[Rfam]
RNA sequence: UGAGAUCAGCGCGUGCUUGCCAAUUUUUAGCUGAACAAGGCUAUGAGGUUAUCAAUGUUCAAGGUGGCAUGUUAGCCUUUGAAGAAUUGUAAACAUUAGAAUUUCUCCUACUUGGUGUGGACUGGGUAGGAGAAUUUUAU
Numbered sequence: 001u002g003a004g005a006u007c008a009g010c011g012c013g014u015g016c017u018u019g020c021c022a023a024u025u026u027u028u029a030g031c032u033g034a035a036c037a038a039g040g041c042u043a044u045g046a047g048g049u050u051a052u053c054a055a056u057g058u059u060c061a062a063g064g065u066g067g068c069a070u071g072u073u074a075g076c077c078u079u080u081g082a083a084g085a086a087u088u089g090u091a092a093a094c095a096u097u098a099g100a101a102u103u104u105c106u107c108c109u110a111c112u113u114g115g116u117g118u119g120g121a122c123u124g125g126g127u128a129g130g131a132g133a134a135u136u137u138u139a140u
Stems, first nucleotide, its partner, number of pairs: 009020003033137003038078006046070001048068006104133009115122002